The record is a 107-nucleotide RNA sequence from Aotus nancymaae, which matches "Y RNA" in Rfam. Taxonomically the source falls in Aotus (Eukaryota, Craniata, Theria, Euarchontoglires). It scores 57 bits against the family's covariance model. For this family Rfam cites "Evolution of the vertebrate Y RNA cluster" (Mosig et al., Theory Biosci, 2007). It is annotated as a non-coding RNA gene. From the family's description: Y RNAs are components of the Ro ribonucleoprotein particle (Ro RNP), in association with Ro60 and La proteins.

RNA sequence: GGCCGGUCCGAACGUAGUGUUAUCUCAAUUGUUCACAGUCAGUUACAGAUUGAACUCCUUGUUCUACUCUUUCCCUCCUUCUCACUACUGCACUUGGCUAGUCUUAA
Numbered sequence: 001g002g003c004c005g006g007u008c009c010g011a012a013c014g015u016a017g018u019g020u021u022a023u024c025u026c027a028a029u030u031g032u033u034c035a036c037a038g039u040c041a042g043u044u045a046c047a048g049a050u051u052g053a054a055c056u057c058c059u060u061g062u063u064c065u066a067c068u069c070u071u072u073c074c075c076u077c078c079u080u081c082u083c084a085c086u087a088c089u090g091c092a093c094u095u096g097g098c099u100a101g102u103c104u105u106a107a
Stems, first nucleotide, its partner, number of pairs: 001103003005099004010095002014091002016086004038068001041065002